Overview: Rfam assigns this 95-nucleotide sequence from Anaeromyxobacter sp. Fw109-5 to the family "Selenocysteine transfer RNA". Rfam 15.1 lists 4,211 matches to the family in 3,344 species. Taxonomically the source falls in Anaeromyxobacter (Bacteria, Pseudomonadati, Myxococcota, Cystobacterineae).

[Rfam]
RNA sequence: GGCAGAGCGUCCUAGGCUGGUGCCGGGCCCGGUCUUCAAAACCGGUGGAUGGUGCUGAGAGGCGCUGUUGGGGGGUUCGAUUCCCCUGCUCUGCC
Dot-bracket structure: (((((((((..((.(((....))).)).(((((.......)))))..(((((((........)))))))..((((.......)))))))))))))